[Rfam]
RNA sequence: CCGCAUAAAUGCGCAACCUUUCGUAUAUCCUGAGCAAUGGGGCUCAGGGUCUCUACCGGAAACCGUAAAUUUCUAGCUACGAAAAAUAGGCCCUUGGCG
Number, nucleotide and partner (000 for none) at each position: 001c000002c000003g000004c000005a000006u000007a000008a000009a000010u000011g000012c000013g000014c000015a000016a000017c000018c000019u084020u083021u082022c081023g080024u079025a078026u000027a000028u000029c048030c047031u046032g045033a044034g043035c042036a000037a000038u000039g000040g000041g000042g035043c034044u033045c032046a031047g030048g029049g000050u000051c000052u000053c000054u000055a000056c000057c000058g074059g073060a072061a071062a070063c000064c000065g000066u000067a000068a000069a000070u062071u061072u060073c059074u058075a000076g000077c000078u025079a024080c023081g022082a021083a020084a019085a000086a000087u000088a000089g000090g000091c000092c000093c000094u000095u000096g000097g000098c000099g000
RNA: Purine riboswitch aptamer